[Rfam]
RNA sequence: GUGCCUUAAACUAAUGAGUAAGGAAAAUAAAGAGACCUAUUGACGUGGGCUCACCUCCUCAUCAGAAGGAGUAAUUUUUGAACGGGGUAUAGGUUCGUCUGCUGUGAUCUGACUACUUUUCAGAUUGCAGUAAGGCGGGACUGCCCC
Number, nucleotide and partner (000 for none) at each position: 001g000002u000003g000004c023005c022006u021007u020008a019009a000010a000011c000012u000013a000014a000015u000016g000017a000018g000019u008020a007021a006022g005023g004024a000025a000026a000027a000028u000029a000030a000031a000032g052033a051034g050035a000036c049037c048038u047039a046040u000041u000042g000043a000044c000045g000046u039047g038048g037049g036050c034051u033052c032053a000054c068055c000056u066057c065058c000059u000060c000061a000062u000063c000064a000065g057066a056067a000068g054069g000070a000071g000072u000073a000074a000075u000076u000077u000078u000079u000080g000081a000082a000083c000084g147085g146086g145087g144088u143089a000090u000091a142092g141093g000094u139095u138096c137097g136098u000099c000100u132101g000102c130103u129104g128105u127106g126107a000108u124109c123110u122111g121112a120113c000114u000115a000116c000117u000118u000119u000120u112121c111122a110123g109124a108125u000126u106127g105128c104129a103130g102131u000132a100133a000134g000135g000136c097137g096138g095139g094140a000141c092142u091143g088144c087145c086146c085147c084
This 147-nucleotide sequence from Leptotrombidium deliense belongs to the Rfam family "U12 minor spliceosomal RNA". The family is grouped with related families in Rfam's "U2 clan". The family's RNA type in Rfam is spliceosomal small nuclear RNA. The match comes from Rfam's covariance-model search (103 bits). Its family is annotated with pre-mRNA branch point binding, mRNA branch site recognition and U12 snRNP in the Gene Ontology.